Record summary:
The family of this 99-nucleotide RNA sequence from Roseiconus nitratireducens is "c-di-GMP-I-GGC riboswitch aptamer". For this family Rfam cites "Bioinformatic analysis of riboswitch structures uncovers variant classes with altered ligand specificity" (Weinberg et al., Proc Natl Acad Sci U S A, 2017). A search with the family's covariance model found it, with a score of 64 bits. Rfam 15.1 lists 1,298 matches to the family in 717 species. Its Rfam clan is "c-di-GMP_I riboswitch clan".
[Rfam]
RNA sequence: CUCGACAAAGGCAAACCGCGUGUGAGCGUGGGACGCAAAGUCAUGGGUCCGGUCACUCUUGGGGGAGAGUGGCGACGCCGGAUCGCCAGACUGCCGAAG
Numbered sequence: 001c002u003c004g005a006c007a008a009a010g011g012c013a014a015a016c017c018g019c020g021u022g023u024g025a026g027c028g029u030g031g032g033a034c035g036c037a038a039a040g041u042c043a044u045g046g047g048u049c050c051g052g053u054c055a056c057u058c059u060u061g062g063g064g065g066a067g068a069g070u071g072g073c074g075a076c077g078c079c080g081g082a083u084c085g086c087c088a089g090a091c092u093g094c095c096g097a098a099g
Base pairs, nucleotide, nucleotide: 001099003096004095011036012035016031017030018029019028020027021026034085039092040091041090042089044088045087046086047083048082049081050080051079052078053077